[Rfam]
RNA: Rhodo-rpoB RNA
RNA sequence: UGGUCGGGUGACUUUCCUUGGGAAGAAAGUCGAGAAUUGGCCUUCCUUAUCGUCUCAACUUUCCCCGCCGCUGGGAUCCCGACAGUGUGUGUG
Dot-bracket structure: .((((....(((((((........))))))).......)))).....................(.((((((((.........))))).))).)
Numbered sequence: 001u002g003g004u005c006g007g008g009u010g011a012c013u014u015u016c017c018u019u020g021g022g023a024a025g026a027a028a029g030u031c032g033a034g035a036a037u038u039g040g041c042c043u044u045c046c047u048u049a050u051c052g053u054c055u056c057a058a059c060u061u062u063c064c065c066c067g068c069c070g071c072u073g074g075g076a077u078c079c080c081g082a083c084a085g086u087g088u089g090u091g092u093g
Stems, first nucleotide, its partner, number of pairs: 002042004010031007064093001066091003069087005